Rfam assigns this 58-nucleotide RNA to the family "psbNH RNA". Pairs were carried over by alignment from the consensus structure, which is taken from published work.

RNA sequence: GGGUGUUGAAAAGUCCAGAUACUGUAGGGGCCAGCUCCGGUUCGGGGCUGAUCCUGUC
Numbered sequence: 001g002g003g004u005g006u007u008g009a010a011a012a013g014u015c016c017a018g019a020u021a022c023u024g025u026a027g028g029g030g031c032c033a034g035c036u037c038c039g040g041u042u043c044g045g046g047g048c049u050g051a052u053c054c055u056g057u058c
Stems, first nucleotide, its partner, number of pairs: 027055004032050007

It is annotated as a cis-regulatory element. It is one of the family's seed sequences.